[Rfam]
RNA sequence: CCGAUACGAAAUUUACAGCAUUCUAUUCACUGCACCACUUAAACUAAUGAGUGAUUGGAGGGGAAAAGAAGAGCAAGAAUAAAGUUAGGGCACUCUAAGUACUUUUUUGAGUACUUUCUGGGCCUUACAGGAGAUUUUACGUCCUCAUACUGAAGCAGAAGCUUAAUUGCCUUACUUCUGCAUUGGUAUCUGCGUAUUCCAUACAUUU
Numbered sequence: 001c002c003g004a005u006a007c008g009a010a011a012u013u014u015a016c017a018g019c020a021u022u023c024u025a026u027u028c029a030c031u032g033c034a035c036c037a038c039u040u041a042a043a044c045u046a047a048u049g050a051g052u053g054a055u056u057g058g059a060g061g062g063g064a065a066a067a068g069a070a071g072a073g074c075a076a077g078a079a080u081a082a083a084g085u086u087a088g089g090g091c092a093c094u095c096u097a098a099g100u101a102c103u104u105u106u107u108u109g110a111g112u113a114c115u116u117u118c119u120g121g122g123c124c125u126u127a128c129a130g131g132a133g134a135u136u137u138u139a140c141g142u143c144c145u146c147a148u149a150c151u152g153a154a155g156c157a158g159a160a161g162c163u164u165a166a167u168u169g170c171c172u173u174a175c176u177u178c179u180g181c182a183u184u185g186g187u188a189u190c191u192g193c194g195u196a197u198u199c200c201a202u203a204c205a206u207u208u
Base pairs, nucleotide, nucleotide: 018074019073021070022069030060031059033057034056036053037052038051039050040049133199134198139195140194141193150186151185152184155181156180157179158178159177160176
This 208-nucleotide RNA sequence from Hanseniaspora uvarum belongs to the Rfam family "Small nucleolar RNA snR8". A search with the family's covariance model found it, with a score of 93 bits. The family's consensus secondary structure was predicted with WAR. Lineage of the source: Eukaryota > Opisthokonta > Fungi > Saccharomycotina > Hanseniaspora.